[Rfam]
RNA: Bacterial RNase P class A
RNA sequence: UCAGACGGUCGGAUGGCCGCGGCGCCAUAUGCGGGGAAACCCGAGGUGCCGAGGAAAGUCCGGGCUCCACGGGAACACGGUGCCGGAUAACGUCCGGCGGGGGCGACCUCCGGGAAAGUGCCACAGAGAGCAGACCGCCCGCCCCGGGGCUCCACGGAAACCGACGCGCACCGCGCGGAUCAGGUCCGGGGGCGCCAACCCGGGGCGCGGCAAGGGUGAAAGGGUGCGGUAAGAGCGCACCGCGGCCCCGGCGACGGGGACGGCAUGGCAAACCCCACCGGGAGCAAGACCGAAUAGGGACGGCAGGGCCGGACCGCCACGGCGGACCGGAGAUGCCCAAGGCGCGUUCCCGCGCCCCGUCCGGGUAGGUCGCGCGAGGCGUCCGGCGACGGACGUCCCAGACGAAUGGCCAUCCAGCGCCCUUCAUCGGGCGUGGACAGAACCCGGCUUACAGACCGUCUGACCCG
Number, nucleotide and partner (000 for none) at each position: 001u463002c462003a461004g460005a459006c458007g457008g456009u455010c454011g452012g414013a413014u412015g411016g410017c409018c408019g000020c051021g050022g049023c048024g047025c046026c045027a000028u043029a000030u000031g000032c000033g000034g000035g000036g000037a000038a000039a000040c000041c000042c000043g028044a000045g026046g025047u024048g023049c022050c021051g020052a000053g000054g000055a000056a450057a449058g448059u000060c447061c446062g445063g444064g443065c284066u283067c282068c281069a000070c000071g000072g000073g350074a000075a348076c000077a000078c280079g279080g278081u277082g276083c097084c096085g095086g094087a093088u000089a000090a000091c000092g000093u087094c086095c085096g084097g083098c112099g110100g109101g108102g107103g000104c000105g000106a000107c102108c101109u100110c099111c000112g098113g275114g274115a000116a000117a000118g273119u272120g269121c268122c267123a000124c000125a000126g000127a000128g000129a000130g000131c000132a000133g000134a000135c215136c214137g211138c210139c209140c207141g206142c205143c204144c203145c202146g201147g200148g199149g000150c000151u000152c000153c000154a000155c000156g000157g000158a000159a000160a000161c000162c000163g000164a000165c000166g000167c000168g000169c000170a000171c000172c000173g000174c000175g000176c000177g000178g000179a000180u000181c000182a000183g000184g000185u000186c000187c000188g000189g000190g000191g000192g000193c000194g000195c000196c000197a000198a000199c148200c147201c146202g145203g144204g143205g142206c141207g140208c000209g139210g138211c137212a000213a000214g136215g135216g000217u000218g000219a000220a000221a000222g000223g241224g240225u239226g238227c237228g236229g000230u000231a000232a000233g000234a000235g000236c228237g227238c226239a225240c224241c223242g264243c262244g261245g000246c259247c258248c257249c256250g255251g000252c000253g000254a000255c250256g249257g248258g247259g246260a000261c244262g243263g000264c242265a000266u000267g122268g121269c120270a000271a000272a119273c118274c114275c113276c082277a081278c080279c079280g078281g068282g067283a066284g065285c000286a000287a000288g371289a370290c369291c368292g000293a000294a000295u000296a000297g000298g362299g361300a360301c359302g358303g357304c000305a000306g000307g000308g000309c000310c000311g000312g000313a000314c000315c000316g000317c000318c000319a000320c000321g000322g000323c000324g000325g000326a000327c000328c000329g000330g000331a000332g000333a000334u000335g000336c000337c000338c000339a000340a000341g356342g355343c354344g353345c352346g000347u000348u075349c000350c073351c000352g345353c344354g343355c342356c341357c303358c302359g301360u300361c299362c298363g000364g000365g000366u000367a000368g291369g290370u289371c288372g000373c000374g000375c000376g000377a000378g397379g396380c395381g394382u393383c392384c391385g390386g000387c000388g000389a000390c385391g384392g383393a382394c381395g380396u379397c378398c000399c000400a000401g000402a000403c000404g000405a000406a000407u000408g018409g017410c016411c015412a014413u013414c012415c000416a000417g000418c000419g000420c000421c000422c000423u000424u000425c000426a000427u000428c000429g000430g000431g000432c000433g000434u000435g000436g000437a000438c000439a000440g000441a000442a000443c064444c063445c062446g061447g060448c058449u057450u056451a000452c011453a000454g010455a009456c008457c007458g006459u005460c004461u003462g002463a001464c000465c000466c000467g000